Overview: Shown here is a 138-nucleotide sequence from Lactococcus allomyrinae, a member of the family "PreQ1-II (pre queuosine) riboswitch aptamer". For this family Rfam cites "Confirmation of a second natural preQ1 aptamer class in Streptococcaceae bacteria" (Meyer et al., RNA, 2008).
RNA sequence: UCUGAUAAAAUAGGGACGUUGCUUUGACAGGAAUAGAGAAAAGCAAUCCUCAGGACUUAUGACCUUUGCCUGAGCAUAUUUCAAGUGAACUGAGAUUGCAAAAUCAAAUUCAACGGUUUCACUAAAGGAGAAAAAUUG
Numbered sequence: 001u002c003u004g005a006u007a008a009a010a011u012a013g014g015g016a017c018g019u020u021g022c023u024u025u026g027a028c029a030g031g032a033a034u035a036g037a038g039a040a041a042a043g044c045a046a047u048c049c050u051c052a053g054g055a056c057u058u059a060u061g062a063c064c065u066u067u068g069c070c071u072g073a074g075c076a077u078a079u080u081u082c083a084a085g086u087g088a089a090c091u092g093a094g095a096u097u098g099c100a101a102a103a104u105c106a107a108a109u110u111c112a113a114c115g116g117u118u119u120c121a122c123u124a125a126a127g128g129a130g131a132a133a134a135a136u137u138g
Stems, first nucleotide, its partner, number of pairs: 018047008049074006063128004084123005